[Rfam]
This 179-nucleotide sequence from Pseudooceanicola nanhaiensis belongs to the Rfam family "Ruegeria cis52 sRNA".
The family's consensus secondary structure was predicted with RNAfold.
The literature on the family includes a 2016 paper in Front Microbiol by Rivers et al., "Experimental Identification of Small Non-Coding RNAs in the Model Marine Bacterium Ruegeria pomeroyi DSS-3".
Lineage of the source: Bacteria > Pseudomonadota > Alphaproteobacteria > Paracoccaceae > Pseudooceanicola.
The family's RNA type in Rfam is small RNA.
RNA sequence: UCCGGAGCGCGUGUUUCAUCACGAUGUUCGGGAAGGCCACGCCCUUGAGCCGGGCGGUGCGGAUGUAUUGCGCGGUCAUCACCUCGGCCAUCGCGGCGCGGGUCAUCCGGGCGAUGUAGCCCAUGCCGUAGAGCGAGAUCGUCAGGACCGGCAGGAAGAAGUUCUCGAAGGUGGCGUCG
Numbered sequence: 001u002c003c004g005g006a007g008c009g010c011g012u013g014u015u016u017c018a019u020c021a022c023g024a025u026g027u028u029c030g031g032g033a034a035g036g037c038c039a040c041g042c043c044c045u046u047g048a049g050c051c052g053g054g055c056g057g058u059g060c061g062g063a064u065g066u067a068u069u070g071c072g073c074g075g076u077c078a079u080c081a082c083c084u085c086g087g088c089c090a091u092c093g094c095g096g097c098g099c100g101g102g103u104c105a106u107c108c109g110g111g112c113g114a115u116g117u118a119g120c121c122c123a124u125g126c127c128g129u130a131g132a133g134c135g136a137g138a139u140c141g142u143c144a145g146g147a148c149c150g151g152c153a154g155g156a157a158g159a160a161g162u163u164c165u166c167g168a169a170g171g172u173g174g175c176g177u178c179g
Stems, first nucleotide, its partner, number of pairs: 005140002008137001010135003014131002016128001020125002028123001030121002038113001040111001042109001046105003050101003054097001055075001057073006082096002085093002146178002149174001151172002154165004